The record is a 105-nucleotide RNA sequence from Prunus avium, which matches "MIR6274 microRNA precursor family" in Rfam. The match comes from Rfam's covariance-model search (84 bits).
[Rfam]
RNA sequence: GGAUAACACUUUUUGCUAUUUCCGACCAAUAGAGUAAUGACACAUGGGAUAAUUUUUUCACGUGUCAUUGCAUUAUUGGUCGAAUAUAGCAAAAUAGUACUAUCC
Numbered sequence: 001g002g003a004u005a006a007c008a009c010u011u012u013u014u015g016c017u018a019u020u021u022c023c024g025a026c027c028a029a030u031a032g033a034g035u036a037a038u039g040a041c042a043c044a045u046g047g048g049a050u051a052a053u054u055u056u057u058u059c060a061c062g063u064g065u066c067a068u069u070g071c072a073u074u075a076u077u078g079g080u081c082g083a084a085u086a087u088a089g090c091a092a093a094a095u096a097g098u099a100c101u102a103u104c105c
Base pairs, nucleotide, nucleotide: 002104003103004102005101011094012093013092014091015090016089017088018087019086021084023082024081025080026079027078028077029076030075031074032073034071035070036069037068038067039066040065041064042063043062045060046059047058048057049056
Record summary
Lineage of the source: Eukaryota > Viridiplantae > eudicotyledons > rosids > Prunus.